[Rfam]
Nucleotides: 128
Base pairs, nucleotide, nucleotide: 028056029055030054031053032052033051034043035042036041090112091111092110093109094108095107096106097105098104
Number, partner (000 for none) and nucleotide at each position: 001000a002000g003000g004000u005000u006000a007000a008000u009000a010000u011000a012000u013000g014000u015000c016000u017000u018000a019000c020000c021000g022000a023000a024000g025000a026000c027000a028056g029055u030054a031053g032052g033051g034043g035042g036041c037000u038000u039000a040000g041036g042035c043034c044000a045000u046000a047000a048000u049000a050000u051033u052032c053031c054030u055029a056028c057000c058000g059000a060000g061000g062000a063000a064000g065000a066000a067000u068000c069000c070000a071000g072000u073000u074000g075000a076000g077000a078000a079000u080000u081000a082000c083000a084000c085000g086000g087000a088000u089000c090112c091111u092110c093109u094108a095107u096106g097105u098104c099000u100000a101000g102000g103000u104098g105097g106096c107095a108094u109093a110092g111091a112090g113000u114000u115000u116000u117000u118000u119000g120000u121000u122000u123000u124000u125000u126000a127000c128000a

Ribosomal protein L10 leader: a 128-nucleotide RNA sequence from Jeotgalibaca porci. The source organism's lineage runs through Bacteria, Bacillati, Bacillota, Lactobacillales and Jeotgalibaca. Pairs were carried over by alignment from the consensus structure, which was predicted with CMfinder. This family is a putative r-protein leader autoregulatory structure found in B. subtilis and other low-GC Gram-positive bacteria. It is located in the 5' untranslated regions of mRNAs encoding ribosomal proteins L10 and L12 (rplJ-rplL). A Rho-independent transcription terminator structure that is probably involved in regulation is included at the 3' end. The match comes from Rfam's covariance-model search (85 bits).